About this RNA
The family of this 134-nucleotide RNA from Myotis brandtii is "U11 spliceosomal RNA". Pairs were carried over by alignment from the consensus structure, which is taken from published work. The family's RNA type in Rfam is spliceosomal small nuclear RNA.
RNA sequence: AAAAAGGGCUUCUGCUGUGAGUGGCACACGUAGAGCAGCUUGAUUGCUCUAUGUGCGGAAUUGACAUCAAGAGAUUUUAGAAGCAUAAUAGUUUGGUACAUGGGCAGCUGGUGAUCGUUGGUCCUGGCUCCCGC
Numbered sequence: 001a002a003a004a005a006g007g008g009c010u011u012c013u014g015c016u017g018u019g020a021g022u023g024g025c026a027c028a029c030g031u032a033g034a035g036c037a038g039c040u041u042g043a044u045u046g047c048u049c050u051a052u053g054u055g056c057g058g059a060a061u062u063g064a065c066a067u068c069a070a071g072a073g074a075u076u077u078u079a080g081a082a083g084c085a086u087a088a089u090a091g092u093u094u095g096g097u098a099c100a101u102g103g104g105c106a107g108c109u110g111g112u113g114a115u116c117g118u119u120g121g122u123c124c125u126g127g128c129u130c131c132c133g134c
Base pairs, nucleotide, nucleotide: 008084009083010082011081012080013026014025015024016023017022027055028054029053030052031051032050033049034048035047036046037045038044057078058077059076060075061074062073102132103131104130107128108127109126110125111124113123114122115121116120